Rfam assigns this 53-nucleotide sequence from Helianthus annuus to the family "Plastid-psbl-rps4 3UTR RNA". Rfam classes the family as a cis-regulatory element.

RNA sequence: CAGAAAAAGAGGGAUUCGAACCCUCGGUACGAAUAACUCAUACAACGGAUUAG
Numbered sequence: 001c002a003g004a005a006a007a008a009g010a011g012g013g014a015u016u017c018g019a020a021c022c023c024u025c026g027g028u029a030c031g032a033a034u035a036a037c038u039c040a041u042a043c044a045a046c047g048g049a050u051u052a053g
Stems, first nucleotide, its partner, number of pairs: 009025005027043003031039002
Taxonomically the source falls in Helianthus (Eukaryota, Streptophyta, Streptophytina, campanulids). About the family: Plastid psbl-rps4-psbC is a non-coding RNA (ncRNA) present in plastids. It is compose of two short stem-loops in tandem in the terminal 3 prime untranslate region (3UTR) mostly in psbl and rps4 seed plants genes. The literature on the family includes a 2012 paper in Nucleic Acids Res by Zhelyazkova et al., "Protein-mediated protection as the predominant mechanism for defining processed mRNA termini in land plant chloroplasts". Pairs were carried over by alignment from the consensus structure, which was predicted with LocARNA.